[Rfam]
RNA: Small nucleolar RNA U83B
Organism: Halcyon senegalensis
RNA sequence: UUUGUGCAGUGAUGAGGGGUGGAAGAAGCACUGGGCAGUAUCUGGCACCGGUGGGGCAUGGCUCUGCACUGCAUUUCUUCUGAGAGCAGC
Numbered sequence: 001u002u003u004g005u006g007c008a009g010u011g012a013u014g015a016g017g018g019g020u021g022g023a024a025g026a027a028g029c030a031c032u033g034g035g036c037a038g039u040a041u042c043u044g045g046c047a048c049c050g051g052u053g054g055g056g057c058a059u060g061g062c063u064c065u066g067c068a069c070u071g072c073a074u075u076u077c078u079u080c081u082g083a084g085a086g087c088a089g090c
Stems, first nucleotide, its partner, number of pairs: 002089004